[Rfam]
Nucleotides: 136
Base pairs, nucleotide, nucleotide: 001041002040004013015037020035021034025030047060048059049058050057063081064080065079066078067077068076087100088099089098090097110129111128112127113126114125115124116123117122
Number, partner (000 for none) and nucleotide at each position: 001041u002040g003000u004013g005000a006000u007000c008000u009000u010000a011000a012000c013004c014000c015037g016000u017000c018000a019000u020035u021034a022000a023000g024000c025030u026000u027000u028000c029000c030025g031000a032000a033000c034021u035020a036000u037015u038000a039000c040002u041001g042000g043000g044000g045000a046000u047060g048059g049058u050057c051000g052000a053000u054000u055000u056000u057050g058049g059048c060047c061000g062000c063081g064080a065079g066078u067077g068076g069000c070000c071000c072000c073000u074000g075000u076068c077067c078066a079065c080064u081063c082000u083000g084000u085000u086000u087100g088099a089098c090097g091000c092000a093000u094000c095000c096000c097090u098089g099088u100087c101000u102000a103000g104000a105000c106000u107000u108000u109000c110129g111128a112127g113126c114125c115124g116123c117122c118000u119000c120000c121000g122117g123116g124115c125114g126113g127112c128111u129110c130000u131000u132000u133000u134000u135000u136000c